[Rfam]
RNA sequence: CUUGAUCGACCCCAGGUACAGCGGCUCGGAACGGUUCUGGCCGUAGGUCGCCAGCAGCGCCUGGGCCUC
Number, nucleotide and partner (000 for none) at each position: 001c000002u000003u000004g000005a000006u000007c000008g000009a000010c000011c000012c000013c000014a026015g025016g000017u023018a000019c000020a000021g000022c000023g017024g000025c015026u014027c063028g000029g000030a000031a000032c059033g058034g000035u000036u000037c054038u053039g052040g000041c050042c000043g048044u000045a000046g000047g000048u043049c000050g041051c000052c039053a038054g037055c000056a000057g000058c033059g032060c000061c000062u000063g027064g000065g000066c000067c000068u000069c000
The record is a 69-nucleotide RNA from Mycolicibacterium grossiae, which matches "ASpks TB sRNA" in Rfam.
Rfam classes the family as an antisense RNA.
Lineage of the source: Bacteria > Actinomycetota > Mycobacteriaceae > Mycobacterium > Mycobacterium (subgen. Mycolicibacterium).